[Rfam]
RNA sequence: GGGGAAUUAGCUCAUAUGGAAGAGCGCUCGCUUUGCAUGUGAGAGGUAACGGGAUCAAUACCUGUAUUCUCCA
Numbered sequence: 001g002g003g004g005a006a007u008u009a010g011c012u013c014a015u016a017u018g019g020a021a022g023a024g025c026g027c028u029c030g031c032u033u034u035g036c037a038u039g040u041g042a043g044a045g046g047u048a049a050c051g052g053g054a055u056c057a058a059u060a061c062c063u064g065u066a067u068u069c070u071c072c073a
Base pairs, nucleotide, nucleotide: 001072002071003070004069005068006067007066010025011024012023013022027043028042029041030040031039049065050064051063052062053061
RNA: tRNA
Organism: Austrofundulus limnaeus